[Rfam]
RNA sequence: AAAGGGGCAAUACCCAAUUUCUUGUUCGGUCAAGAAACCGGUAUUGCCCCUUU
Numbered sequence: 001a002a003a004g005g006g007g008c009a010a011u012a013c014c015c016a017a018u019u020u021c022u023u024g025u026u027c028g029g030u031c032a033a034g035a036a037a038c039c040g041g042u043a044u045u046g047c048c049c050c051u052u053u
Stems, first nucleotide, its partner, number of pairs: 001053014019036006